[Rfam]
RNA sequence: AAAUGCUACUAGGGGAGCCCAAGGCGUGGGCUGAGAGAAGAAACGUACCUUUUUUGACCCUUCGGACCUGAUCUGGAUCAUACCAGCGUAGGAAAGUAGGCGAGCGCGCAC
Dot-bracket structure: .....(((((((((.((((((.....)))))......(((((.......))))))..)))).....((((..((((......))))..))))..)))))............
RNA: TPP riboswitch aptamer (THI element)
Organism: Bacillus salinus